[Rfam]
RNA sequence: AUCGACGGCGCGGGGUGCCGGUUCCGGCCGGCUGAGAGCACACCCGUCGAACCUGAUCUAGCUCGAACUAGCGAAGGAACGCCAUUGCGUAGUUAC
Numbered sequence: 001a002u003c004g005a006c007g008g009c010g011c012g013g014g015g016u017g018c019c020g021g022u023u024c025c026g027g028c029c030g031g032c033u034g035a036g037a038g039c040a041c042a043c044c045c046g047u048c049g050a051a052c053c054u055g056a057u058c059u060a061g062c063u064c065g066a067a068c069u070a071g072c073g074a075a076g077g078a079a080c081g082c083c084a085u086u087g088c089g090u091a092g093u094u095a096c
Stems, first nucleotide, its partner, number of pairs: 007083004011046004016040001017032005052077003058071004
The family of this 96-nucleotide sequence from Haloactinospora alba is "TPP riboswitch aptamer (THI element)". The family has 115 seed sequences and 16,130 matches in Rfam 15.1. Vitamin B(1) in its active form thiamin pyrophosphate (TPP) is an essential coenzyme that is synthesised by coupling of pyrimidine and thiazole moieties in bacteria. Gene Ontology term of the family: thiamine pyrophosphate binding.